[Rfam]
RNA: Small nucleolar RNA SNORA64/SNORA10 family
RNA sequence: GCCCCCUCAGCUCUGGCAAUCACACAGGUCCAUUGUGUGCUUGGGGGGGUUUCAAGCAAGAGAAGAGGAUGGCCUUCCUAAUACAUAGUAGACCUGCCCCAAGGUGUCUGCCCUGAUCCUAGGAGAGCAUCAGCU
Numbered sequence: 001g002c003c004c005c006c007u008c009a010g011c012u013c014u015g016g017c018a019a020u021c022a023c024a025c026a027g028g029u030c031c032a033u034u035g036u037g038u039g040c041u042u043g044g045g046g047g048g049g050u051u052u053c054a055a056g057c058a059a060g061a062g063a064a065g066a067g068g069a070u071g072g073c074c075u076u077c078c079u080a081a082u083a084c085a086u087a088g089u090a091g092a093c094c095u096g097c098c099c100c101a102a103g104g105u106g107u108c109u110g111c112c113c114u115g116a117u118c119c120u121a122g123g124a125g126a127g128c129a130u131c132a133g134c135u
Stems, first nucleotide, its partner, number of pairs: 002067001004065001006062003013056002015053001018042002021039005075125005081120001090114002094110001096108001098106001